The record is a 102-nucleotide sequence from Carya illinoinensis, which matches "Small nucleolar RNA snoR109" in Rfam. The family's consensus secondary structure was predicted with WAR. Rfam 15.1 lists 680 matches to the family in 220 species.

RNA sequence: UGGCUGUAGCCAUAUCAAAUGUCUCCGAGAAGUUAACUGACCGGUUUUUGUGAGAUCUUUUGAUCUUCGUCAACUAUUCUGCUUACAUAACUUCUCAUAUUC
Numbered sequence: 001u002g003g004c005u006g007u008a009g010c011c012a013u014a015u016c017a018a019a020u021g022u023c024u025c026c027g028a029g030a031a032g033u034u035a036a037c038u039g040a041c042c043g044g045u046u047u048u049u050g051u052g053a054g055a056u057c058u059u060u061u062g063a064u065c066u067u068c069g070u071c072a073a074c075u076a077u078u079c080u081g082c083u084u085a086c087a088u089a090a091c092u093u094c095u096c097a098u099a100u101u102c
Base pairs, nucleotide, nucleotide: 027096028095029094030093031092032091033090034089039083041081043079044078046076048073049072050071
The family's RNA type in Rfam is H/ACA-box small nucleolar RNA.